[Rfam]
RNA sequence: UUUUCUUAAAUGAUGACAUGUGCAUAAACUAAGCACUAGGAGCGCAUGUUUGAAGCCAGGCAAA
Numbered sequence: 001u002u003u004u005c006u007u008a009a010a011u012g013a014u015g016a017c018a019u020g021u022g023c024a025u026a027a028a029c030u031a032a033g034c035a036c037u038a039g040g041a042g043c044g045c046a047u048g049u050u051u052g053a054a055g056c057c058a059g060g061c062a063a064a
Base pairs, nucleotide, nucleotide: 001064002063003062005060015050016049017048018047019046020045021044022043023042029039030038031037

Selenocysteine insertion sequence 1: a 64-nucleotide RNA sequence from Acipenser ruthenus. The match comes from Rfam's covariance-model search (38 bits). The organism belongs to Acipenser, within Eukaryota. The family's RNA type in Rfam is cis-regulatory element. About the family: The incorporation of selenocysteine into a protein sequence is directed by an in-frame UGA codon (usually a stop codon) within the coding region of the mRNA. Selenoprotein mRNAs contain a conserved secondary structure in the 3' UTR that is required for the distinction of UGA stop from UGA selenocysteine. The selenocysteine insertion sequence (SECIS) is around 60 nt in length and adopts a hairpin structure which is sufficiently well-defined and conserved to act as a computational screen for selenoprotein genes.